RNA sequence: UUUAGUUUCUGGGGACAGGUGCAAUUCCUUACCGGCGGUAAAGCCCGCAAGCCGCAAGGCCGAUUCGUUGAAAUUACGAAGCCGACAGUUAAAGUCUGGAUGGGAAGAAACGUUU
Numbered sequence: 001u002u003u004a005g006u007u008u009c010u011g012g013g014g015a016c017a018g019g020u021g022c023a024a025u026u027c028c029u030u031a032c033c034g035g036c037g038g039u040a041a042a043g044c045c046c047g048c049a050a051g052c053c054g055c056a057a058g059g060c061c062g063a064u065u066c067g068u069u070g071a072a073a074u075u076a077c078g079a080a081g082c083c084g085a086c087a088g089u090u091a092a093a094g095u096c097u098g099g100a101u102g103g104g105a106a107g108a109a110a111c112g113u114u115u
Base pairs, nucleotide, nucleotide: 005111006110007109008108009107010106017029018028019027031095032094033084034083035048036047037046038045043082044081051060052059053058064080065079066078067077068076086098087097088096
This 115-nucleotide sequence from Syntrophobotulus glycolicus belongs to the Rfam family "FMN riboswitch aptamer (RFN element)".
A search with the family's covariance model found it, with a score of 104 bits.
The source organism's lineage runs through Bacteria, Clostridia, Eubacteriales, Desulfitobacteriaceae and Syntrophobotulus glycolicus.